[Rfam]
RNA sequence: UAUUUUUUAAAAGCGCCAGGACUUACCUUUGGUAAGUUGACGAGGAUAGGGAGUAUCGAAUCUUCGGCGGGUGCCCUACGGUAUCGCACUACCGUUAAAGGUUGAUAAAAGCGGAAAGCGAUUUCCGUCACAACAUCAACCGGGUGUGACAA
Numbered sequence: 001u002a003u004u005u006u007u008u009a010a011a012a013g014c015g016c017c018a019g020g021a022c023u024u025a026c027c028u029u030u031g032g033u034a035a036g037u038u039g040a041c042g043a044g045g046a047u048a049g050g051g052a053g054u055a056u057c058g059a060a061u062c063u064u065c066g067g068c069g070g071g072u073g074c075c076c077u078a079c080g081g082u083a084u085c086g087c088a089c090u091a092c093c094g095u096u097a098a099a100g101g102u103u104g105a106u107a108a109a110a111g112c113g114g115a116a117a118g119c120g121a122u123u124u125c126c127g128u129c130a131c132a133a134c135a136u137c138a139a140c141c142g143g144g145u146g147u148g149a150c151a152a
Stems, first nucleotide, its partner, number of pairs: 020038008047078005056067004079094005100141005111128007

The record is a 152-nucleotide sequence from Caloramator sp. E03, which matches "glmS glucosamine-6-phosphate activated ribozyme aptamer" in Rfam.
A search with the family's covariance model found it, with a score of 110 bits.
About the family: This entry contains a glucosamine-6-phosphate activated ribozyme that is found in the mRNA for GlmS. GlmS is an enzyme that uses fructose-6-phosphate and glutamine to generate glucosamine-6-phosphate. The ribozyme catalyses self cleavage of the glmS mRNA that is thought to regulate GlmS activity.
For this family Rfam cites "Control of gene expression by a natural metabolite-responsive ribozyme" (Winkler et al., Nature, 2004).
Gene Ontology terms of the family: regulation of gene expression and catalytic activity.
The family's RNA type in Rfam is riboswitch.